About this RNA:
Shown here is a 108-nucleotide RNA from Blautia luti, a member of the family "TPP riboswitch aptamer (THI element)".

RNA sequence: UGUAAAUAACAGGGGAGCUUGUGACGGCAGGCUGAGAGGAAGUCUUCAACUUCGACCCUUAUACCUGAUUUGGAUAAUGCCAACGUAGGAACGUAUAAGAUGAAUUUA
Numbered sequence: 001u002g003u004a005a006a007u008a009a010c011a012g013g014g015g016a017g018c019u020u021g022u023g024a025c026g027g028c029a030g031g032c033u034g035a036g037a038g039g040a041a042g043u044c045u046u047c048a049a050c051u052u053c054g055a056c057c058c059u060u061a062u063a064c065c066u067g068a069u070u071u072g073g074a075u076a077a078u079g080c081c082a083a084c085g086u087a088g089g090a091a092c093g094u095a096u097a098a099g100a101u102g103a104a105u106u107u108a
Stems, first nucleotide, its partner, number of pairs: 006096003011059004017032005039053005064089004070083004
Lineage of the source: Bacteria > Bacillati > Bacillota > Lachnospirales > Blautia.